This 129-nucleotide RNA sequence from Vanilla planifolia belongs to the Rfam family "Small nucleolar RNA snoR111".
The family's consensus secondary structure was predicted with WAR.
On this family, see Marker et al., Curr Biol 2002: "Experimental RNomics: identification of 140 candidates for small non-messenger RNAs in the plant Arabidopsis thaliana".
Rfam links the family to the GO terms RNA processing and nucleolus.
RNA sequence: CGGUUUUAAAGAGAGUUAAGCCGUAGCUUAGCUGGAUCCGAAGCAGAGGUAAAUAGAAGCAAGUCGAGAUAUCGUUUCUGUCGUCCUUUUGCUAUUUGGUUGACGAUUUGAUUGUUGACUCGAUGACAC
Numbered sequence: 001c002g003g004u005u006u007u008a009a010a011g012a013g014a015g016u017u018a019a020g021c022c023g024u025a026g027c028u029u030a031g032c033u034g035g036a037u038c039c040g041a042a043g044c045a046g047a048g049g050u051a052a053a054u055a056g057a058a059g060c061a062a063g064u065c066g067a068g069a070u071a072u073c074g075u076u077u078c079u080g081u082c083g084u085c086c087u088u089u090u091g092c093u094a095u096u097u098g099g100u101u102g103a104c105g106a107u108u109u110g111a112u113u114g115u116u117g118a119c120u121c122g123a124u125g126a127c128a129c
Stems, first nucleotide, its partner, number of pairs: 006036002010033002013029006063124001065122004071112004080107006088099002